Background
The record is an 85-nucleotide RNA from Papaver nudicaule, which matches "Small nucleolar RNA R12" in Rfam. Its family is annotated with RNA processing and nucleolus in the Gene Ontology. The family has 9 seed sequences and 992 matches in Rfam 15.1.
RNA sequence: GUUGGGAUGAUGAAAAAAACCAAUUCAGUCGGAUUCACAUUGAUUUUAAUUAACAUGAUCAUACAACCAGCUACUUCUGACUAAC
Number, nucleotide and partner (000 for none) at each position: 001g085002u084003u083004g082005g081006g000007a000008u000009g000010a000011u000012g000013a000014a000015a000016a000017a000018a000019a000020c000021c000022a000023a000024u000025u000026c000027a000028g000029u000030c000031g000032g000033a000034u000035u000036c000037a000038c000039a000040u000041u000042g000043a000044u000045u000046u000047u000048a000049a000050u000051u000052a000053a000054c000055a000056u000057g000058a000059u000060c000061a000062u000063a000064c000065a000066a000067c000068c000069a000070g000071c000072u000073a000074c000075u000076u000077c000078u000079g000080a000081c005082u004083a003084a002085c001

It scores 68 bits against the family's covariance model. By type it is a C/D-box small nucleolar RNA. The source organism's lineage runs through Eukaryota, Spermatophyta, Mesangiospermae, Ranunculales and Papaver. snoR12 is a C/D box small nucleolar RNA, which acts as a methylation guide for 25S ribosomal RNA in plants. snoR12 has been alternatively named snoZ44 in Arabidopsis and snoZ131 in rice.